[Rfam]
RNA sequence: CAACAACUGAAAAGAUUUUUAUGUAUAUGCCAGAGAAUAAGGCUCAGGCGUCUCUACCAGGUUACCGUAAAUGACUUGACUACAUAAAAGCUGAGAGAAACA
Numbered sequence: 001c002a003a004c005a006a007c008u009g010a011a012a013a014g015a016u017u018u019u020u021a022u023g024u025a026u027a028u029g030c031c032a033g034a035g036a037a038u039a040a041g042g043c044u045c046a047g048g049c050g051u052c053u054c055u056a057c058c059a060g061g062u063u064a065c066c067g068u069a070a071a072u073g074a075c076u077u078g079a080c081u082a083c084a085u086a087a088a089a090g091c092u093g094a095g096a097g098a099a100a101c102a
Stems, first nucleotide, its partner, number of pairs: 018088008029049003033045003058078007
RNA: Purine riboswitch aptamer